[Rfam]
RNA sequence: CCACAACUUAAAUGUGGAAUGUACUUGCUUUAUCCCUUAAAAGUAAGUGCUUCCAUGUUUUAGUGGUGG
Numbered sequence: 001c002c003a004c005a006a007c008u009u010a011a012a013u014g015u016g017g018a019a020u021g022u023a024c025u026u027g028c029u030u031u032a033u034c035c036c037u038u039a040a041a042a043g044u045a046a047g048u049g050c051u052u053c054c055a056u057g058u059u060u061u062a063g064u065g066g067u068g069g
Base pairs, nucleotide, nucleotide: 001069002068003067006064007063008062010060011059012058013057014056015055016054017053018052021050022049023048024047025046026045027044028043029042
Rfam assigns this 69-nucleotide RNA from Trogon melanurus to the family "mir-302 microRNA precursor family". Its family is annotated with miRNA-mediated post-transcriptional gene silencing and RISC complex in the Gene Ontology. The base pairs follow the family's consensus structure, which was predicted with RNAalifold. Its Rfam clan is "mir-290 clan". The organism belongs to Trogon, within Eukaryota. On this family, see Suh et al., Dev Biol 2004: "Human embryonic stem cells express a unique set of microRNAs".